RNA sequence: AUGAACGCGUGGGGAGAGAUUACCAGCAAUGGCCUAAAGGUUAUGGCUGGUAACGCCGAAGGAGUAAGCCAGUUACGGGUGAAUCUCUCAGGCAAAAGGACCUUUGCGGGACG
Numbered sequence: 001a002u003g004a005a006c007g008c009g010u011g012g013g014g015a016g017a018g019a020u021u022a023c024c025a026g027c028a029a030u031g032g033c034c035u036a037a038a039g040g041u042u043a044u045g046g047c048u049g050g051u052a053a054c055g056c057c058g059a060a061g062g063a064g065u066a067a068g069c070c071a072g073u074u075a076c077g078g079g080u081g082a083a084u085c086u087c088u089c090a091g092g093c094a095a096a097a098g099g100a101c102c103u104u105u106g107c108g109g110g111a112c113g
Base pairs, nucleotide, nucleotide: 006108007107008106009105011103012102013101020053021052022051023050024049025048026047027046055093056092057091058089059088062087063086064085068080069079
Shown here is a 113-nucleotide sequence from Paenibacillus phyllosphaerae, a member of the family "Glycine riboswitch aptamer". Gene Ontology term of the family: glycine biosynthetic process. The organism belongs to Paenibacillus, within Bacteria.